[Rfam]
RNA sequence: GGCGAGUUUCUUCGGGGCGGAGCUCGACCGCCAACACAAGAAAUAGUCGAGUUCAUCGACGCCAAUCGCGAGGAGUUCGGGGUCGAGCCCAUCUGCACCGUCCUGCGAAGCGCAGGCCUGCAGGUGGCCCUG
Numbered sequence: 001g002g003c004g005a006g007u008u009u010c011u012u013c014g015g016g017g018c019g020g021a022g023c024u025c026g027a028c029c030g031c032c033a034a035c036a037c038a039a040g041a042a043a044u045a046g047u048c049g050a051g052u053u054c055a056u057c058g059a060c061g062c063c064a065a066u067c068g069c070g071a072g073g074a075g076u077u078c079g080g081g082g083u084c085g086a087g088c089c090c091a092u093c094u095g096c097a098c099c100g101u102c103c104u105g106c107g108a109a110g111c112g113c114a115g116g117c118c119u120g121c122a123g124g125u126g127g128c129c130c131u132g
Base pairs, nucleotide, nucleotide: 016032017031018030019029020028078132079131080130081129082128089127090126092124093123094122095121096120097119